[Rfam]
RNA sequence: AUCCCUGAAUGAUGAGAUCAAAUAAUUUACAGUUAUCCCUGUCUGAUAAGUUUCUGCUGAAUUUUUGUAAUCUAACAUUGAU
Numbered sequence: 001a002u003c004c005c006u007g008a009a010u011g012a013u014g015a016g017a018u019c020a021a022a023u024a025a026u027u028u029a030c031a032g033u034u035a036u037c038c039c040u041g042u043c044u045g046a047u048a049a050g051u052u053u054c055u056g057c058u059g060a061a062u063u064u065u066u067g068u069a070a071u072c073u074a075a076c077a078u079u080g081a082u
Stems, first nucleotide, its partner, number of pairs: 001082003006077002
RNA: Small nucleolar RNA R38